[Rfam]
RNA sequence: CCCGCAGCAGGACGGAAAGACCCUAUGGACCUUUACUGUAACCUGGUAUUGGUAUCUGAUUUUUAAUGCGUAGCAUAGGUGGGAGACGAAGAGGCCCUUCUCCAGGGAGGGGCGGAGUCAUUAGUGAAAUACCACUCUUUAAUGAUUGGAUAUCUAACUUUGUGCCAUAAUCUGGGCAAAGAACAGUGCUAGGGGGUCAGUUUGACUGGGGCGGUCUCCUCCUAAAGAGUAACGGAGGAUUGCGAAGGUUUCCUCAGGCUGGUUGGUAAUCAGUCGUUGAGCGCAUGAGUAUAAGGAAGCUUUACUGUGAGACUUACAAGUCGAGCAGUUACGAAAGUAGGCUCAAGUGGUCCGGUAGUGGAUUGUGGAAUCGCUAUCGCUUAAAGGAUAAAAGGUACCCUAGGGAUAACAGGCUGAUCGCGCCCAAGCGUUCACAGCGACGGCGCGGUUUGGCACCUCGAUGUCGGCUCAUCACAUCCUGGGGCUGUAGAAGGUCCCAAGGGUUCGGCUGUUCGCCGAUUAAAGUGGUACGCGAGCUGGGUUCAGAACGUCGUGAGACAGUUCGGUUCUCUAUCCGCUGCGGGCGUU
Numbered sequence: 001c002c003c004g005c006a007g008c009a010g011g012a013c014g015g016a017a018a019g020a021c022c023c024u025a026u027g028g029a030c031c032u033u034u035a036c037u038g039u040a041a042c043c044u045g046g047u048a049u050u051g052g053u054a055u056c057u058g059a060u061u062u063u064u065a066a067u068g069c070g071u072a073g074c075a076u077a078g079g080u081g082g083g084a085g086a087c088g089a090a091g092a093g094g095c096c097c098u099u100c101u102c103c104a105g106g107g108a109g110g111g112g113c114g115g116a117g118u119c120a121u122u123a124g125u126g127a128a129a130u131a132c133c134a135c136u137c138u139u140u141a142a143u144g145a146u147u148g149g150a151u152a153u154c155u156a157a158c159u160u161u162g163u164g165c166c167a168u169a170a171u172c173u174g175g176g177c178a179a180a181g182a183a184c185a186g187u188g189c190u191a192g193g194g195g196g197u198c199a200g201u202u203u204g205a206c207u208g209g210g211g212c213g214g215u216c217u218c219c220u221c222c223u224a225a226a227g228a229g230u231a232a233c234g235g236a237g238g239a240u241u242g243c244g245a246a247g248g249u250u251u252c253c254u255c256a257g258g259c260u261g262g263u264u265g266g267u268a269a270u271c272a273g274u275c276g277u278u279g280a281g282c283g284c285a286u287g288a289g290u291a292u293a294a295g296g297a298a299g300c301u302u303u304a305c306u307g308u309g310a311g312a313c314u315u316a317c318a319a320g321u322c323g324a325g326c327a328g329u330u331a332c333g334a335a336a337g338u339a340g341g342c343u344c345a346a347g348u349g350g351u352c353c354g355g356u357a358g359u360g361g362a363u364u365g366u367g368g369a370a371u372c373g374c375u376a377u378c379g380c381u382u383a384a385a386g387g388a389u390a391a392a393a394g395g396u397a398c399c400c401u402a403g404g405g406a407u408a409a410c411a412g413g414c415u416g417a418u419c420g421c422g423c424c425c426a427a428g429c430g431u432u433c434a435c436a437g438c439g440a441c442g443g444c445g446c447g448g449u450u451u452g453g454c455a456c457c458u459c460g461a462u463g464u465c466g467g468c469u470c471a472u473c474a475c476a477u478c479c480u481g482g483g484g485c486u487g488u489a490g491a492a493g494g495u496c497c498c499a500a501g502g503g504u505u506c507g508g509c510u511g512u513u514c515g516c517c518g519a520u521u522a523a524a525g526u527g528g529u530a531c532g533c534g535a536g537c538u539g540g541g542u543u544c545a546g547a548a549c550g551u552c553g554u555g556a557g558a559c560a561g562u563u564c565g566g567u568u569c570u571c572u573a574u575c576c577g578c579u580g581c582g583g584g585c586g587u588u
Stems, first nucleotide, its partner, number of pairs: 001584008010576003014571001015569001022404004027400002029396005035201004042193007051154011063142004068137001078136005085119003094113008158181003165175003204216004217239006240385001242342002248300006254280002257275006281290002305328004311322003330339003353379007361372002413454003417451001418448007428438002465540001466538004470532001471529005478503002481498006505519005546564004550559003